The family of this 48-nucleotide sequence is "gut-2 RNA".
RNA sequence: AACCAUCGGAUAAUUGGAUUCGAUGAGGGGCUAAUAGGAGCCGAAGAU
Number, nucleotide and partner (000 for none) at each position: 001a000002a000003c000004c025005a024006u023007c022008g021009g020010a019011u018012a000013a000014u000015u000016g000017g000018a011019u010020u009021c008022g007023a006024u005025g004026a000027g000028g000029g042030g041031c040032u039033a000034a000035u000036a000037g000038g000039a032040g031041c030042c029043g000044a000045a000046g000047a000048u000

It is annotated as a small RNA. Pairs were carried over by alignment from the consensus structure, which is taken from published work.